THF (Tetrahydrofolate) riboswitch aptamer: a 97-nucleotide RNA from Zongyangia hominis. Rfam links the family to the GO term tetrahydrofolate metabolic process. From the family's description: Tetrahydrofolate (THF) riboswitch was first reported for Ames et al. as an RNA motif in 5' untranslated (5'-UTR)regions of folate transport and biosynthesis genes in Firmicutes genomes. A reference for the family is Ames et al. (2010), "A eubacterial riboswitch class that senses the coenzyme tetrahydrofolate", Chem Biol.
[Rfam]
RNA sequence: AGCAGAGUAGAAGCCCGUGCGUUAAGUGCUGUCUGAACGGGGAGUUGUCAGACGGACGAAAAGGAUUCUUGCGGUACGAGCUUCGCAUCCCGCUGCU
Numbered sequence: 001a002g003c004a005g006a007g008u009a010g011a012a013g014c015c016c017g018u019g020c021g022u023u024a025a026g027u028g029c030u031g032u033c034u035g036a037a038c039g040g041g042g043a044g045u046u047g048u049c050a051g052a053c054g055g056a057c058g059a060a061a062a063g064g065a066u067u068c069u070u071g072c073g074g075u076a077c078g079a080g081c082u083u084c085g086c087a088u089c090c091c092g093c094u095g096c097u
Stems, first nucleotide, its partner, number of pairs: 001097005010084005016078004020073003026057002029055008040090003044086001061070003